A member of the RNA family "Bacillaceae-1 RNA" from Peribacillus faecalis, 68 nucleotides long. Rfam classes the family as a small RNA. A search with the family's covariance model found it, with a score of 36 bits.
[Rfam]
RNA sequence: AAGUAAGGACCAUUGACUAAGGUCGCUACGUCCGCAUAUCCUCGUCGCUGUGACUCUCAUCGUGAGAG
Number, nucleotide and partner (000 for none) at each position: 001a000002a000003g000004u000005a000006a000007g000008g000009a000010c000011c050012a049013u000014u047015g046016a045017c044018u000019a000020a000021g000022g000023u000024c000025g040026c000027u038028a037029c000030g000031u000032c000033c000034g000035c000036a000037u028038a027039u000040c025041c000042u000043c000044g017045u016046c015047g014048c000049u012050g011051u000052g000053a000054c068055u067056c066057u065058c064059a000060u000061c000062g000063u000064g058065a057066g056067a055068g054